Shown here is an 80-nucleotide sequence from Callorhinchus milii, a member of the family "mir-194 microRNA precursor family".
A search with the family's covariance model found it, with a score of 78 bits.
Rfam 15.1 lists 936 matches to the family in 630 species.
The literature on the family includes a 2003 paper in RNA by Lagos-Quintana et al., "New microRNAs from mouse and human".
Its family is annotated with RISC complex and miRNA-mediated post-transcriptional gene silencing in the Gene Ontology.

RNA sequence: CAGUGUGCAUCAGGUGUAACAGCAACUCCAUGUGGAUGGCACUGGCUUCCAGUGGAGCUGCUGUUACUUUCGAUGGGCAC
Numbered sequence: 001c002a003g004u005g006u007g008c009a010u011c012a013g014g015u016g017u018a019a020c021a022g023c024a025a026c027u028c029c030a031u032g033u034g035g036a037u038g039g040c041a042c043u044g045g046c047u048u049c050c051a052g053u054g055g056a057g058c059u060g061c062u063g064u065u066a067c068u069u070u071c072g073a074u075g076g077g078c079a080c
Stems, first nucleotide, its partner, number of pairs: 010073002016067008026057006033051003